[Rfam]
Nucleotides: 098
Base pairs, nucleotide, nucleotide: 006086007085008084010082011048012047013046014045016042017035018034019033020032021031022030023029054079055078056077060073061072062071063070
Number, partner (000 for none) and nucleotide at each position: 001000g002000a003000a004000u005000a006086g007085c008084g009000a010082c011048a012047g013046g014045g015000g016042c017035g018034c019033u020032c021031g022030g023029a024000a025000g026000a027000u028000u029023u030022c031021c032020g033019g034018g035017c036000u037000g038000a039000g040000a041000c042016g043000a044000a045014c046013c047012c048011u049000u050000a051000g052000a053000a054079c055078c056077u057000g058000a059000a060073c061072c062071g063070g064000a065000u066000a067000a068000u069000g070063c071062c072061g073060g074000c075000g076000g077056a078055g079054g080000g081000a082010g083000g084008c085007g086006c087000g088000u089000a090000a091000g092000a093000c094000g095000a096000u097000u098000g

This 98-nucleotide RNA sequence from Celeribacter halophilus belongs to the Rfam family "TPP riboswitch aptamer (THI element)". The match comes from Rfam's covariance-model search (73 bits).